[Rfam]
RNA sequence: CCUAUCGACAUCGUCAUCGGGGAGUAGUCACCGCCUCCGAGCGGGAUCGCGUCAACAGGCUUGCGCAGCAGCGCAUGGCGCGGUCAGCCGAACGAUCGGCCAGACCAGACCGUUGUGCCGGCUCUCCCGCGGACGGAGAGGUUUCCGGGGCGCGGUCUCUCGUCCGUUGGUCAUUGUCAUGUC
Numbered sequence: 001c002c003u004a005u006c007g008a009c010a011u012c013g014u015c016a017u018c019g020g021g022g023a024g025u026a027g028u029c030a031c032c033g034c035c036u037c038c039g040a041g042c043g044g045g046a047u048c049g050c051g052u053c054a055a056c057a058g059g060c061u062u063g064c065g066c067a068g069c070a071g072c073g074c075a076u077g078g079c080g081c082g083g084u085c086a087g088c089c090g091a092a093c094g095a096u097c098g099g100c101c102a103g104a105c106c107a108g109a110c111c112g113u114u115g116u117g118c119c120g121g122c123u124c125u126c127c128c129g130c131g132g133a134c135g136g137a138g139a140g141g142u143u144u145c146c147g148g149g150g151c152g153c154g155g156u157c158u159c160u161c162g163u164c165c166g167u168u169g170g171u172c173a174u175u176g177u178c179a180u181g182u183c
Stems, first nucleotide, its partner, number of pairs: 032043003045085010062075005092182003
Notes
The family of this 183-nucleotide sequence from Kaistia hirudinis is "Manganese Mn2+ riboswitch aptamer (yybP-ykoY)". This RNA was originally discovered in E. coli during a large scale screen and was named SraF. The family was later found to exist upstream of related families of protein genes in many bacteria, including the the yybP and ykoK genes in B. subtilis.